Acido-Lenti-1 RNA: a 46-nucleotide sequence from Taibaiella lutea. The match comes from Rfam's covariance-model search (47 bits).

[Rfam]
RNA sequence: CGAUGGGUUUACACCCAUCGCUAUUGUAUUUCACCCUUUCAGGGUU
Numbered sequence: 001c002g003a004u005g006g007g008u009u010u011a012c013a014c015c016c017a018u019c020g021c022u023a024u025u026g027u028a029u030u031u032c033a034c035c036c037u038u039u040c041a042g043g044g045u046u
Base pairs, nucleotide, nucleotide: 001020002019003018004017005016006015007014008013033045034044035043036042037041
Dot-bracket structure: ((((((((....))))))))............(((((...))))).
Record summary
The family's consensus secondary structure is taken from published work.